[Rfam]
RNA sequence: CCGGGGAGCAGGACGGUGAGCCUGUCGUUGUUCAGGGAGGCCAGGUCCUCUGGGCUGAGAAGGAUUAUGACGGGCUCCUCGGUGUUCUCCAGG
Numbered sequence: 001c002c003g004g005g006g007a008g009c010a011g012g013a014c015g016g017u018g019a020g021c022c023u024g025u026c027g028u029u030g031u032u033c034a035g036g037g038a039g040g041c042c043a044g045g046u047c048c049u050c051u052g053g054g055c056u057g058a059g060a061a062g063g064a065u066u067a068u069g070a071c072g073g074g075c076u077c078c079u080c081g082g083u084g085u086u087c088u089c090c091a092g093g
Stems, first nucleotide, its partner, number of pairs: 001093002005090004010085001014081003018077011030065003033054001037050004

mir-433 microRNA precursor family: a 93-nucleotide sequence from Sus scrofa. The base pairs follow the family's consensus structure, which was predicted with RNAalifold. For this family Rfam cites "Characterization of bovine miRNAs by sequencing and bioinformatics analysis" (Jin et al., BMC Mol Biol, 2009). Its family is annotated with cellular response to lipopolysaccharide, long-term synaptic potentiation and miRNA-mediated post-transcriptional gene silencing in the Gene Ontology. The organism belongs to Sus, within Eukaryota.